[Rfam]
RNA: mir-8813 microRNA precursor family
RNA sequence: UGGUGACCUGAGGCUCCCUGGCCAUCACUCUGUCCCAGGCCCUCCUGGCCCGGGGGCACAGGCUGAGUCCCAGUAUAGUUUGUGGGGUCCUGACCC
Numbered sequence: 001u002g003g004u005g006a007c008c009u010g011a012g013g014c015u016c017c018c019u020g021g022c023c024a025u026c027a028c029u030c031u032g033u034c035c036c037a038g039g040c041c042c043u044c045c046u047g048g049c050c051c052g053g054g055g056g057c058a059c060a061g062g063c064u065g066a067g068u069c070c071c072a073g074u075a076u077a078g079u080u081u082g083u084g085g086g087g088u089c090c091u092g093a094c095c096c
Stems, first nucleotide, its partner, number of pairs: 002095003005089005011081005021074002027068004032063003039057006